[Rfam]
RNA: Eukaryotic small subunit ribosomal RNA, nucleotides 631 to 1185
RNA sequence: AACGUUGCUGUAGUUAAAAAGCUCGUAGUUGGACCUCGGGGUCCGGCUGGCGGUCCGCCGCGAGGCGUGCCACCGCCUGCCCGGGCCCCUGCCUCUCGGCCGCCCCCGGGAUGCUCUUGACUGAGUGUCCCGCCCGGGGCCCGAAGCGUUUACUUUGAAAAAAUCAGAGUGUUCAAAGCAGGCCCGGUCGCCUGAAUACCGCAGCUAGGAAUGAUGGAAUAGGACUCCGGUCCUAUUUUGUGGGUUUUAUCCUCCGGACUGGAGCCAUGAUUGAGAGGGACGGCCGGGGGCAUUCGUAUUGUGCCGCUAGAGGUGAAAUUCUUGGACCGGCGCAAGACGGACGAGAGCGAAAGCAUUUGCCAAGAAUGUUUUCAUUAAUCAAGAACGAAAGUCGGAGGUUCGAAGACGAUCAGAUACCGUCGUAGUUCCGACCAUAAACGAUGCCAACUAGCGAUCCGGCGGCGUUAUUCCCAUGACCCGCCGGGCAGCGUCCGGGAAACCAAAGUCUUUGGGUUCCGGGGGGAGUAUGGUUGCAAAGCUGAAACUUAAAGGAAU
Numbered sequence: 001a002a003c004g005u006u007g008c009u010g011u012a013g014u015u016a017a018a019a020a021g022c023u024c025g026u027a028g029u030u031g032g033a034c035c036u037c038g039g040g041g042u043c044c045g046g047c048u049g050g051c052g053g054u055c056c057g058c059c060g061c062g063a064g065g066c067g068u069g070c071c072a073c074c075g076c077c078u079g080c081c082c083g084g085g086c087c088c089c090u091g092c093c094u095c096u097c098g099g100c101c102g103c104c105c106c107c108g109g110g111a112u113g114c115u116c117u118u119g120a121c122u123g124a125g126u127g128u129c130c131c132g133c134c135c136g137g138g139g140c141c142c143g144a145a146g147c148g149u150u151u152a153c154u155u156u157g158a159a160a161a162a163a164u165c166a167g168a169g170u171g172u173u174c175a176a177a178g179c180a181g182g183c184c185c186g187g188u189c190g191c192c193u194g195a196a197u198a199c200c201g202c203a204g205c206u207a208g209g210a211a212u213g214a215u216g217g218a219a220u221a222g223g224a225c226u227c228c229g230g231u232c233c234u235a236u237u238u239u240g241u242g243g244g245u246u247u248u249a250u251c252c253u254c255c256g257g258a259c260u261g262g263a264g265c266c267a268u269g270a271u272u273g274a275g276a277g278g279g280a281c282g283g284c285c286g287g288g289g290g291c292a293u294u295c296g297u298a299u300u301g302u303g304c305c306g307c308u309a310g311a312g313g314u315g316a317a318a319u320u321c322u323u324g325g326a327c328c329g330g331c332g333c334a335a336g337a338c339g340g341a342c343g344a345g346a347g348c349g350a351a352a353g354c355a356u357u358u359g360c361c362a363a364g365a366a367u368g369u370u371u372u373c374a375u376u377a378a379u380c381a382a383g384a385a386c387g388a389a390a391g392u393c394g395g396a397g398g399u400u401c402g403a404a405g406a407c408g409a410u411c412a413g414a415u416a417c418c419g420u421c422g423u424a425g426u427u428c429c430g431a432c433c434a435u436a437a438a439c440g441a442u443g444c445c446a447a448c449u450a451g452c453g454a455u456c457c458g459g460c461g462g463c464g465u466u467a468u469u470c471c472c473a474u475g476a477c478c479c480g481c482c483g484g485g486c487a488g489c490g491u492c493c494g495g496g497a498a499a500c501c502a503a504a505g506u507c508u509u510u511g512g513g514u515u516c517c518g519g520g521g522g523g524a525g526u527a528u529g530g531u532u533g534c535a536a537a538g539c540u541g542a543a544a545c546u547u548a549a550a551g552g553a554a555u
Stems, first nucleotide, its partner, number of pairs: 011518001013516001019515001021386001023384002028379003277373004281368002285364001289361004295339002299335008310321003347354002391432006401425001405421004443514003447506002451489002455485008464477003494501002520547003529540004